Nucleotides: 354
Base pairs, nucleotide, nucleotide: 001350002349003348004347005346006345007344008343009342010341011339012319013318014317015316016315017314018313020036021035022034023033024032025031026030041337042336043335045334046333047332048331049330050222051221052220053219057255058254059253060252062218063217064216065215066214067081068080069079070078071077082096083094084093085092086091097213098212102211103210104207105206106205118154119153120150121149122148123147124146125145126144127143128142162180163179164178165177166176167175182202183200184199185198186197187196189194226276227275228274229273237265238264239263240262241261246260247259248258249257250256283302284301285300286299287298288297289296290295
Number, partner (000 for none) and nucleotide at each position: 001350u002349g003348a004347g005346u006345a007344a008343g009342u010341c011339a012319g013318a014317u015316g016315g017314u018313c019000g020036c021035g022034g023033a024032c025031a026030c027000u028000u029000u030026g031025u032024g033023u034022u035021c036020g037000a038000g039000g040000a041337a042336a043335g044000u045334c046333c047332g048331a049330g050222c051221u052220c053219c054000a055000u056000a057255g058254g059253g060252c061000a062218a063217g064216g065215u066214g067081c068080u069079g070078g071077g072000u073000a074000a075000u076000a077071c078070c079069c080068a081067g082096u083094g084093a085092g086091g087000g088000c089000g090000a091086c092085c093084u094083c095000a096082a097213g098212g099000a100000u101000a102211g103210u104207g105206c106205a107000a108000c109000a110000g111000a112000a113000a114000u115000a116000u117000a118154c119153c120150g121149c122148c123147c124146g125145g126144u127143a128142u129000u130000u131000c132000c133000c134000g135000u136000g137000g138000g139000a140000u141000g142128a143127u144126a145125c146124c147123g148122g149121g150120u151000a152000a153119g154118g155000g156000u157000g158000g159000a160000a161000a162180g163179g164178u165177a166176a167175g168000g169000u170000a171000a172000g173000a174000g175167c176166u177165u178164a179163c180162c181000g182202g183200c184199g185198g186197g187196a188000u189194g190000g191000u192000g193000a194189c195000u196187u197186c198185c199184c200183g201000g202182c203000c204000c205106u206105g207104u208000a209000a210103a211102c212098c213097c214066c215065a216064c217063c218062u219053g220052g221051a222050g223000c224000a225000a226276g227275a228274c229273c230000a231000a232000a233000u234000a235000g236000a237265g238264g239263a240262g241261c242000u243000u244000a245000u246260g247259c248258a249257g250256u251000g252060g253059c254058c255057c256250g257249c258248u259247g260246c261241g262240c263239u264238c265237c266000c267000g268000g269000g270000u271000a272000u273229g274228g275227u276226c277000g278000c279000u280000u281000g282000a283302g284301g285300u286299g287298u288297c289296a290295g291000g292000c293000a294000a295290c296289u297288g298287a299286c300285a301284u302283c303000c304000u305000a306000g307000a308000u309000a310000g311000a312000u313018g314017a315016c316015c317014a318013u319012c320000u321000a322000a323000a324000a325000c326000a327000g328000a329000a330049c331048u332047c333046g334045g335043c336042u337041u338000a339011u340000a341010g342009a343008c344007u345006u346005g347004c348003u349002c350001a351000u352000u353000u354000u
The family of this 354-nucleotide sequence from Tepidanaerobacter syntrophicus is "Bacterial RNase P class A". Taxonomically the source falls in Tepidanaerobacter (Bacteria, Bacillati, Thermosediminibacterales, Tepidanaerobacteraceae). Its family is annotated with tRNA processing, dimeric ribonuclease P complex and ribonuclease P activity in the Gene Ontology. A search with the family's covariance model found it, with a score of 323 bits.